[Rfam]
RNA sequence: AUAUAUACAGUAGGAAUUGAACCUACGACUUCGCCAAUAUGAGUUGGGCGCUUUCACCACUCAGCCAUGGAUGC
Numbered sequence: 001a002u003a004u005a006u007a008c009a010g011u012a013g014g015a016a017u018u019g020a021a022c023c024u025a026c027g028a029c030u031u032c033g034c035c036a037a038u039a040u041g042a043g044u045u046g047g048g049c050g051c052u053u054u055c056a057c058c059a060c061u062c063a064g065c066c067a068u069g070g071a072u073g074c
Stems, first nucleotide, its partner, number of pairs: 004073003008069001010026005039068003043065006050058001